RNA sequence: AAUAAAGACUAUCAUAUAACUCAUAUAAUCUUGGGAAUAAGGCCCAUAAGUUUCUACCGGAUAACCAUUGCAAUUAUCCGACUAUGAGUGAAAUAGCGCGUCUA
Numbered sequence: 001a002a003u004a005a006a007g008a009c010u011a012u013c014a015u016a017u018a019a020c021u022c023a024u025a026u027a028a029u030c031u032u033g034g035g036a037a038u039a040a041g042g043c044c045c046a047u048a049a050g051u052u053u054c055u056a057c058c059g060g061a062u063a064a065c066c067a068u069u070g071c072a073a074u075u076a077u078c079c080g081a082c083u084a085u086g087a088g089u090g091a092a093a094u095a096g097c098g099c100g101u102c103u104a
Base pairs, nucleotide, nucleotide: 019089020088021087022086023085024084025083029049032046033045034044035043058080059079060078061077062076063075064074
RNA: Purine riboswitch aptamer